[Rfam]
RNA sequence: GUUAGACAAAGGCACACCCGUUCGAAAGUCGGGGUCGCAAAGCUUCCGGUCUACAGCUUCUCGAAGCCAUGACAGCGGGGUUGCCAAG
Numbered sequence: 001g002u003u004a005g006a007c008a009a010a011g012g013c014a015c016a017c018c019c020g021u022u023c024g025a026a027a028g029u030c031g032g033g034g035u036c037g038c039a040a041a042g043c044u045u046c047c048g049g050u051c052u053a054c055a056g057c058u059u060c061u062c063g064a065a066g067c068c069a070u071g072a073c074a075g076c077g078g079g080g081u082u083g084c085c086a087a088g
Stems, first nucleotide, its partner, number of pairs: 012038002017033004023028001041082004046078003049073003056067004
Dot-bracket structure: ...........((...((((..(....).))))...))..((((.((((((....((((....))))...)))..)))))))......